[Rfam]
RNA sequence: AAAUUAAUUAAGAGGCAACUCUUAACUGGCCAUUUAGGGAAAAACCGAGAGGUUCAAGCUUAAAGGGCAGAAAGGUGAACCUAGUAGCGCUAGAAUAGUUCAUCGGGAAGGCUUGGCGGUAGCGCAUUAAACGACGAGCCAA
Numbered sequence: 001a002a003a004u005u006a007a008u009u010a011a012g013a014g015g016c017a018a019c020u021c022u023u024a025a026c027u028g029g030c031c032a033u034u035u036a037g038g039g040a041a042a043a044a045c046c047g048a049g050a051g052g053u054u055c056a057a058g059c060u061u062a063a064a065g066g067g068c069a070g071a072a073a074g075g076u077g078a079a080c081c082u083a084g085u086a087g088c089g090c091u092a093g094a095a096u097a098g099u100u101c102a103u104c105g106g107g108a109a110g111g112c113u114u115g116g117c118g119g120u121a122g123c124g125c126a127u128u129a130a131a132c133g134a135c136g137a138g139c140c141a142a
Base pairs, nucleotide, nucleotide: 008025009024010023011022012021013020014019026070027069028068030067031066033064034063035062036061037060038059043054044053045052046051074104075103076102077101078100079099080098087125088124089123090122091121110140111139112138113137114136115135117133118132
The family of this 142-nucleotide RNA is "IMES-2 RNA motif". The sequence is in the family's curated seed alignment. The family's RNA type in Rfam is non-coding RNA gene. The family's consensus secondary structure is taken from published work. On this family, see Weinberg et al., Nature 2009: "Exceptional structured noncoding RNAs revealed by bacterial metagenome analysis".